[Rfam]
Overview
The record is a 232-nucleotide sequence from Tupaia belangeri, which matches "Small nucleolar RNA SNORD17" in Rfam. Pairs were carried over by alignment from the consensus structure, which was predicted with RNAalifold. By type it is a C/D-box small nucleolar RNA. On this family, see Huttenhofer et al., EMBO J 2001: "RNomics: an experimental approach that identifies 201 candidates for novel, small, non-messenger RNAs in mouse". The snoRNA HBI-43 belongs to the C/D family of snoRNAs, guiding 2'O-ribose methylation at position U3797 of the 28S rRNA. Pseudouridylation in position U3797 is predicted to be guided by the H/ACA snoRNA ACA48. The family has 19 seed sequences and 1,015 matches in Rfam 15.1.
RNA sequence: UUGAAAUGAUGAUUCAGUUUAUCCAUUCGCUGAUUGUGCUGUGCUGAUCUCCUUCUAAUCUCAGUUCCUGUUCUAGGAACUUGGGCCACGCAGCCUCCAAAUGCCCGAGUCUGCAGUGUUCUGCUGUGGGCUGUUUGUGUGUUGGUAGGCUGCCGGCAGGAAUGGUGGGUAUCAGCAGGGAUGGGGCCACUUGGUACCAUCCCACCAAGAUGAGUGGUGGGAAAAAAAUAAA
Numbered sequence: 001u002u003g004a005a006a007u008g009a010u011g012a013u014u015c016a017g018u019u020u021a022u023c024c025a026u027u028c029g030c031u032g033a034u035u036g037u038g039c040u041g042u043g044c045u046g047a048u049c050u051c052c053u054u055c056u057a058a059u060c061u062c063a064g065u066u067c068c069u070g071u072u073c074u075a076g077g078a079a080c081u082u083g084g085g086c087c088a089c090g091c092a093g094c095c096u097c098c099a100a101a102u103g104c105c106c107g108a109g110u111c112u113g114c115a116g117u118g119u120u121c122u123g124c125u126g127u128g129g130g131c132u133g134u135u136u137g138u139g140u141g142u143u144g145g146u147a148g149g150c151u152g153c154c155g156g157c158a159g160g161a162a163u164g165g166u167g168g169g170u171a172u173c174a175g176c177a178g179g180g181a182u183g184g185g186g187c188c189a190c191u192u193g194g195u196a197c198c199a200u201c202c203c204a205c206c207a208a209g210a211u212g213a214g215u216g217g218u219g220g221g222a223a224a225a226a227a228a229u230a231a232a
Stems, first nucleotide, its partner, number of pairs: 010231001012229003018223003023217007030209002035204001038176004042171004047166003050162001052160003055156002060085004064080006090153007103140002105137001108132011178203007187194002